[Rfam]
RNA: GcvB RNA
Organism: Vibrio genomosp. F10
RNA sequence: GCAGCGCAGGCCUGAACGGCUUAAUUCUCUCUAGAAUUAAUUGGCUUGCUGCUUGCUAUGUUGUGUUUGCAUACUCGGUUUUCGAGUUAGGUAGAUUUCUACCAAAUAUUUUGUCGCUGUUCUCUCAACGACAAGAUCAACUUCCUGUAUUUUUGACCUGUCUGUCAAAUGAUUUUGCACCGCCUUUUGGCGGUGUUUUUUUAU
Numbered sequence: 001g002c003a004g005c006g007c008a009g010g011c012c013u014g015a016a017c018g019g020c021u022u023a024a025u026u027c028u029c030u031c032u033a034g035a036a037u038u039a040a041u042u043g044g045c046u047u048g049c050u051g052c053u054u055g056c057u058a059u060g061u062u063g064u065g066u067u068u069g070c071a072u073a074c075u076c077g078g079u080u081u082u083c084g085a086g087u088u089a090g091g092u093a094g095a096u097u098u099c100u101a102c103c104a105a106a107u108a109u110u111u112u113g114u115c116g117c118u119g120u121u122c123u124c125u126c127a128a129c130g131a132c133a134a135g136a137u138c139a140a141c142u143u144c145c146u147g148u149a150u151u152u153u154u155g156a157c158c159u160g161u162c163u164g165u166c167a168a169a170u171g172a173u174u175u176u177g178c179a180c181c182g183c184c185u186u187u188u189g190g191c192g193g194u195g196u197u198u199u200u201u202u203a204u
Base pairs, nucleotide, nucleotide: 009046010045011044012043015042016041021040022039023038024037025036026035027034028033073087074086075085076084077083089125090124091123093121094120149174151172152171177196178195179194180193181192182191183190